The record is a 280-nucleotide RNA sequence from Truncatella angustata, which matches "A. fumigatus sRNA Afu_309" in Rfam. Lineage of the source: Eukaryota > Ascomycota > Pezizomycotina > Xylariomycetidae > Truncatella.

RNA sequence: CUCUUCACACCUACCAGGAGCUGUGCCUGGUCGUCCUCUGCUUGCUCACGCGAGUUCAGAGUUGAUGACCACGGCAGCUGAAUAACCUAUGGAACCGUCACUCUUUUCAUGGCGUUCAUCCUAUUCACAGCAUCCCAGAAGAAGUUGUCUGAUAACCAUUCAUUUUCGGCCCUAAAAAGCUUUGAGAAUGCGUGGCCAGGCCGCAGGCGUUAUAUUCCACCUCUGUCUGCCGAGAUCAUUGAUCUUUGAGGCUCAGAAAAACCAUAACCAGCCUACAUAC
Number, nucleotide and partner (000 for none) at each position: 001c000002u000003c000004u000005u000006c000007a000008c000009a000010c000011c000012u000013a000014c000015c000016a000017g135018g134019a133020g131021c130022u129023g128024u127025g075026c074027c073028u071029g070030g069031u000032c067033g066034u065035c064036c061037u060038c059039u058040g057041c000042u054043u052044g051045c050046u000047c000048a000049c000050g045051c044052g043053a000054g042055u000056u000057c040058a039059g038060a037061g036062u000063u000064g035065a034066u033067g032068a000069c030070c029071a028072c000073g027074g026075c025076a000077g000078c000079u000080g000081a000082a000083u000084a125085a124086c000087c000088u000089a000090u000091g116092g115093a000094a000095c112096c111097g000098u000099c000100a000101c000102u000103c000104u000105u000106u000107u000108c000109a000110u000111g096112g095113c000114g000115u092116u091117c000118a000119u000120c000121c000122u000123a000124u085125u084126c000127a024128c023129a022130g021131c020132a000133u019134c018135c017136c000137a000138g000139a000140a000141g000142a000143a000144g000145u000146u000147g201148u200149c199150u000151g000152a000153u000154a000155a000156c000157c000158a000159u000160u000161c190162a189163u188164u187165u186166u185167c184168g183169g180170c179171c000172c000173u000174a000175a000176a000177a000178a000179g170180c169181u000182u000183u168184g167185a166186g165187a164188a163189u162190g161191c000192g000193u000194g000195g000196c000197c000198a000199g149200g148201c147202c000203g000204c000205a000206g273207g272208c271209g268210u267211u266212a265213u264214a000215u000216u000217c000218c000219a000220c000221c000222u257223c256224u255225g254226u000227c000228u000229g252230c251231c250232g000233a000234g244235a243236u242237c241238a000239u000240u000241g237242a236243u235244c234245u000246u000247u000248g000249a000250g231251g230252c229253u000254c225255a224256g223257a222258a000259a000260a000261a000262c000263c000264a213265u212266a211267a210268c209269c000270a000271g208272c207273c206274u000275a000276c000277a000278u000279a000280c000